This 67-nucleotide RNA sequence from Etheostoma spectabile belongs to the Rfam family "miR-430 microRNA precursor family". A search with the family's covariance model found it, with a score of 53 bits. The source organism's lineage runs through Eukaryota, Opisthokonta, Deuterostomia, Teleostomi and Oligocephalus. Pairs were carried over by alignment from the consensus structure, which was predicted with RNAalifold. The family is grouped with related families in Rfam's "mir-290 clan". Rfam 15.1 lists 24,817 matches to the family in 105 species.
[Rfam]
RNA sequence: AGAACUACCCAAACACAAGCCUGACUUGAGUCAUGUAUAGUAAGUGCUACUUGUUGGGGUAGUUUUG
Numbered sequence: 001a002g003a004a005c006u007a008c009c010c011a012a013a014c015a016c017a018a019g020c021c022u023g024a025c026u027u028g029a030g031u032c033a034u035g036u037a038u039a040g041u042a043a044g045u046g047c048u049a050c051u052u053g054u055u056g057g058g059g060u061a062g063u064u065u066u067g
Base pairs, nucleotide, nucleotide: 004063005062006061007060008059009058010057013054014053015052018048019047020046021044022043024041025040026039